The record is a 78-nucleotide sequence from Nocardioides cavernae, which matches "ZMP/ZTP riboswitch aptamer (pfl RNA motif)" in Rfam. The base pairs follow the family's consensus structure, which is taken from published work. The source organism's lineage runs through Bacteria, Actinomycetota, Propionibacteriales, Nocardioidaceae and Nocardioides.
RNA sequence: UUGCGACCACACGACUGGCGCAGGUGGGCCACCACCGGGGAGUGACGCGCGGGAGCAUCGAACGCCUGGGUGCCCCGA
Numbered sequence: 001u002u003g004c005g006a007c008c009a010c011a012c013g014a015c016u017g018g019c020g021c022a023g024g025u026g027g028g029c030c031a032c033c034a035c036c037g038g039g040g041a042g043u044g045a046c047g048c049g050c051g052g053g054a055g056c057a058u059c060g061a062a063c064g065c066c067u068g069g070g071u072g073c074c075c076c077g078a
Base pairs, nucleotide, nucleotide: 003050004049005048007047010044011043012042015039016038017066018065019064020063024035025034026033027032055073056072057071058070059069